[Rfam]
RNA sequence: CCUCCCACGCCUCUCGACGAUGCGCACCCCGGGAGGU
Dot-bracket structure: ((((((.(((...........)))......)))))).

Rfam assigns this 37-nucleotide RNA from Halovibrio salipaludis to the family "abiF RNA". The family has 126 seed sequences and 282 matches in Rfam 15.1. The match comes from Rfam's covariance-model search (50 bits). Rfam describes the family as follows. Actinobacteria, Bacteroidetes, Clostridia, Proteobacteria, one Clostridia phage.